[Rfam]
A member of the RNA family "FMN riboswitch aptamer (RFN element)" from Allomeiothermus silvanus, 178 nucleotides long.

RNA sequence: CUCUUCCUUCGGGGCGGGGUGAAACUCCCCACCGGCGGUGAGCCCUCGGCCUCUUUUAGGCCGCGGGAGAAGCCCGCGAAGCCCAGGAAGUCUGCAGCAUCUUGGGCCCGAUUCGGUGAGAAUCCGAAGCCGACCGUGAUGCCUAUUUAUGGCUGAGUCGGGAUGGGAGAAGGAGGCA
Number, nucleotide and partner (000 for none) at each position: 001c000002u000003c176004u175005u174006c173007c172008u171009u170010c169011g000012g000013g000014g000015c000016g000017g029018g028019g027020u000021g000022a000023a000024a000025c000026u000027c019028c018029c017030c000031a000032c000033c132034g131035g077036c076037g075038g074039u000040g000041a000042g000043c000044c000045c000046u000047c000048g000049g000050c000051c000052u000053c000054u000055u000056u000057u000058a000059g000060g000061c000062c000063g000064c000065g000066g000067g000068a000069g000070a000071a000072g130073c129074c038075c037076g036077c035078g000079a000080a000081g107082c106083c105084c104085a103086g000087g000088a000089a000090g000091u000092c000093u000094g000095c000096a000097g000098c000099a000100u000101c000102u000103u085104g084105g083106g082107c081108c000109c000110g000111a000112u128113u127114c126115g125116g124117u000118g000119a000120g000121a000122a000123u000124c116125c115126g114127a113128a112129g073130c072131c034132g033133a000134c161135c160136g159137u000138g000139a000140u000141g000142c000143c000144u000145a000146u000147u000148u000149a000150u000151g000152g000153c000154u000155g000156a000157g000158u000159c136160g135161g134162g000163a000164u000165g000166g000167g000168a000169g010170a009171a008172g007173g006174a005175g004176g003177c000178a000